[Rfam]
RNA sequence: CGUUGAGAUGAGGAUAUCUUUGUUCUGAAUUUUUUUUUAUUAAUGUUGACUUGCAAAUCAGACUACAAUUAUCUGAUCAUAUG
Dot-bracket structure: ((((((......................................................................))).)))
RNA: Small nucleolar RNA Z155